The record is a 91-nucleotide RNA sequence from Paenalicyclobacillus mengziensis, which matches "c-di-GMP-I riboswitch aptamer" in Rfam. Rfam links the family to the GO term cyclic-di-GMP binding.
RNA sequence: GCAAUUAAAUGGCAAACUUGCCGAAAGGUGAGGACGCAAAGCCACGGGCCUGUAGAGAGCGUUUCAUCUCCAUGGUAGCCGGGUUACCGGG
Numbered sequence: 001g002c003a004a005u006u007a008a009a010u011g012g013c014a015a016a017c018u019u020g021c022c023g024a025a026a027g028g029u030g031a032g033g034a035c036g037c038a039a040a041g042c043c044a045c046g047g048g049c050c051u052g053u054a055g056a057g058a059g060c061g062u063u064u065c066a067u068c069u070c071c072a073u074g075g076u077a078g079c080c081g082g083g084u085u086a087c088c089g090g091g
Base pairs, nucleotide, nucleotide: 012037013036017032018031019030020029021028022027040085041084042083043082045081046080047079048076049075050074055070056069057068058067